[Rfam]
RNA sequence: GAUUUCCGCACACCCACCCGUGCACGGCAGGAGCGGGGGACCCACGGAUUUAAUGCCGGAUCCGGUCCACCGGAGCGGCUUGGGGUGAAGUCGCACGCAAUGCGACCGGGCAUCUCCAGCCCGAACCCGACAGCUCACCUCGCCGGCGCCGGAGAGGAAUUCG
Numbered sequence: 001g002a003u004u005u006c007c008g009c010a011c012a013c014c015c016a017c018c019c020g021u022g023c024a025c026g027g028c029a030g031g032a033g034c035g036g037g038g039g040a041c042c043c044a045c046g047g048a049u050u051u052a053a054u055g056c057c058g059g060a061u062c063c064g065g066u067c068c069a070c071c072g073g074a075g076c077g078g079c080u081u082g083g084g085g086u087g088a089a090g091u092c093g094c095a096c097g098c099a100a101u102g103c104g105a106c107c108g109g110g111c112a113u114c115u116c117c118a119g120c121c122c123g124a125a126c127c128c129g130a131c132a133g134c135u136c137a138c139c140u141c142g143c144c145g146g147c148g149c150c151g152g153a154g155a156g157g158a159a160u161u162c163g
Base pairs, nucleotide, nucleotide: 004032005031006030033143034142035141036140037139038138043082044081083128084127085126091105092104093103094102108122109121110120111119
This 163-nucleotide RNA sequence from Streptomyces boluensis belongs to the Rfam family "c-di-AMP riboswitch aptamer (ydaO/yuaA leader)". The source organism's lineage runs through Bacteria, Bacillati, Actinomycetes, Kitasatosporales and Streptomyces. The base pairs follow the family's consensus structure.